The record is a 43-nucleotide RNA from Galemys pyrenaicus, which matches "Prion pseudoknot" in Rfam. Its family is annotated with translation in the Gene Ontology. From the family's description: This family represents a predicted pseudoknot structure found in prion protein mRNA. It has been suggested that the family has a possible effect in prion protein translation. Taxonomically the source falls in Galemys (Eukaryota, Eumetazoa, Deuterostomia, Craniata).
RNA sequence: UGGUGGUGGUGGCUGGGGUCAGCCCCAUGGCGGUGGCGGCUGG
Numbered sequence: 001u002g003g004u005g006g007u008g009g010u011g012g013c014u015g016g017g018g019u020c021a022g023c024c025c026c027a028u029g030g031c032g033g034u035g036g037c038g039g040c041u042g043g
Stems, first nucleotide, its partner, number of pairs: 001030001003028004
Dot-bracket structure: (.((((..................)))).).............